The family of this 46-nucleotide sequence from Phycisphaerae bacterium RAS1 is "Acido-Lenti-1 RNA". The family's consensus secondary structure is taken from published work. The family has 87 seed sequences and 2,607 matches in Rfam 15.1. By type it is a small RNA.
RNA sequence: CCCACCGCUUGCGCCGUGGGCUUUAUUCUGGCGCCGCUCCGCGGCU
Number, nucleotide and partner (000 for none) at each position: 001c020002c019003c018004a017005c016006c000007g014008c013009u000010u000011g000012c000013g008014c007015c000016g005017u004018g003019g002020g001021c000022u000023u000024u000025a000026u000027u000028c000029u000030g000031g000032c000033g045034c044035c043036g042037c041038u000039c000040c000041g037042c036043g035044g034045c033046u000